[Rfam]
RNA sequence: AAUAAAAUACUUGAAUGCUCUCAUAUAGGUCCGAUAAUAUGGUUCGGAUGUUUCUACCUGGUCACCACAAAUGACCUGUCUAUGUUAGCGAAUGCAGCUACG
Numbered sequence: 001a002a003u004a005a006a007a008u009a010c011u012u013g014a015a016u017g018c019u020c021u022c023a024u025a026u027a028g029g030u031c032c033g034a035u036a037a038u039a040u041g042g043u044u045c046g047g048a049u050g051u052u053u054c055u056a057c058c059u060g061g062u063c064a065c066c067a068c069a070a071a072u073g074a075c076c077u078g079u080c081u082a083u084g085u086u087a088g089c090g091a092a093u094g095c096a097g098c099u100a101c102g
Base pairs, nucleotide, nucleotide: 018088019087022084023083024082025081029049030048031047032046033045034044058078060076061075062074063073064072
Record summary:
This 102-nucleotide sequence from Sporosarcina sp. BI001-red belongs to the Rfam family "Purine riboswitch aptamer". NCBI's taxonomy places the organism under Bacteria, Bacillota, Caryophanales, Caryophanaceae, Sporosarcina. Riboswitches are metabolite binding domains within certain messenger RNAs that serve as precision sensors for their corresponding targets. Allosteric rearrangement of mRNA structure is mediated by ligand binding, and this results in modulation of gene expression. A class of riboswitches that selectively recognises guanine and becomes saturated at concentrations as low as 5 nM. In Bacillus subtilis, this mRNA motif is located on at least five separate transcriptional units that together encode 17 genes that are mostly involved in purine transport and purine nucleotide biosynthesis. The family's consensus secondary structure is taken from published work.